RNA sequence: CGGCAUUCUGCAGGAGAGAGCGGCCGGCUUCAUGCCACGCGCCGCCGCCGAAGGCGCAAAUGCACCCGCAAUCGCUCAGGCAAAAGGACUGCAAGAUCGGG
Numbered sequence: 001c002g003g004c005a006u007u008c009u010g011c012a013g014g015a016g017a018g019a020g021c022g023g024c025c026g027g028c029u030u031c032a033u034g035c036c037a038c039g040c041g042c043c044g045c046c047g048c049c050g051a052a053g054g055c056g057c058a059a060a061u062g063c064a065c066c067c068g069c070a071a072u073c074g075c076u077c078a079g080g081c082a083a084a085a086g087g088a089c090u091g092c093a094a095g096a097u098c099g100g101g
Base pairs, nucleotide, nucleotide: 006096007095009093010092011091012090013089020045021044022043023042047081048080049079050077051076054075055074056073
Source information:
Shown here is a 101-nucleotide sequence from Andreprevotia lacus, a member of the family "Glycine riboswitch aptamer". The pairing is the family consensus, mapped onto this sequence. The organism belongs to Andreprevotia lacus, within Bacteria.